Shown here is an 87-nucleotide RNA sequence from Megasphaera vaginalis, a member of the family "pan motif". Taxonomically the source falls in Megasphaera (Bacteria, Bacillati, Bacillota, Negativicutes). The base pairs follow the family's consensus structure, which is taken from published work.
RNA sequence: AAGAUAACAUCACAUGGUGAGUUAUACUUUUUCGGAUAUUAUUUUCACUUGUUGUAUCUGCUUGGAUCUUCGGACCGAGACAGAAAG
Numbered sequence: 001a002a003g004a005u006a007a008c009a010u011c012a013c014a015u016g017g018u019g020a021g022u023u024a025u026a027c028u029u030u031u032u033c034g035g036a037u038a039u040u041a042u043u044u045u046c047a048c049u050u051g052u053u054g055u056a057u058c059u060g061c062u063u064g065g066a067u068c069u070u071c072g073g074a075c076c077g078a079g080a081c082a083g084a085a086a087g
Base pairs, nucleotide, nucleotide: 001029002028003027004025005024006023007022008021010020011019058083059082060081061079062078063077064076065075067074068073